This 122-nucleotide RNA sequence from Perca fluviatilis belongs to the Rfam family "Small nucleolar RNA U6-53/MBII-28". The source organism's lineage runs through Eukaryota, Deuterostomia, Eurypterygia, Percidae and Perca. Its family is annotated with nucleolus and RNA processing in the Gene Ontology.

[Rfam]
RNA sequence: CUCCGAUGAUGAUCCAGCCAUGCUAAUACUGAUACACCAGGCAGAUGCAGUGUGUCUGCCUGGGUGUAAGUGAGUGCAACUCACCUUCUCAUGCUGAUUGGUAUCAGUGUGUGCUGAGGAGA
Numbered sequence: 001c002u003c004c005g006a007u008g009a010u011g012a013u014c015c016a017g018c019c020a021u022g023c024u025a026a027u028a029c030u031g032a033u034a035c036a037c038c039a040g041g042c043a044g045a046u047g048c049a050g051u052g053u054g055u056c057u058g059c060c061u062g063g064g065u066g067u068a069a070g071u072g073a074g075u076g077c078a079a080c081u082c083a084c085c086u087u088c089u090c091a092u093g094c095u096g097a098u099u100g101g102u103a104u105c106a107g108u109g110u111g112u113g114c115u116g117a118g119g120a121g122a
Stems, first nucleotide, its partner, number of pairs: 001121004042058005